[Rfam]
RNA: Small nucleolar RNA SNORA64/SNORA10 family
Organism: Dipodomys ordii
RNA sequence: ACUCUCUCAUUCUGCAUGGUCACACUAAGCCUCAUCCGUGUGACUUUCGUACAGGGAGAGAUAGAAAAGAGCUCCUCAGGACUCUGGGGUGGCCUGCCUGUGGCCUCUCUUUCCUGUUGGAGCACAACAGGU
Numbered sequence: 001a002c003u004c005u006c007u008c009a010u011u012c013u014g015c016a017u018g019g020u021c022a023c024a025c026u027a028a029g030c031c032u033c034a035u036c037c038g039u040g041u042g043a044c045u046u047u048c049g050u051a052c053a054g055g056g057a058g059a060g061a062u063a064g065a066a067a068a069g070a071g072c073u074c075c076u077c078a079g080g081a082c083u084c085u086g087g088g089g090u091g092g093c094c095u096g097c098c099u100g101u102g103g104c105c106u107c108u109c110u111u112u113c114c115u116g117u118u119g120g121a122g123c124a125c126a127a128c129a130g131g132u
Stems, first nucleotide, its partner, number of pairs: 002064002005061004010056005018045008072122004079115002086110003091105004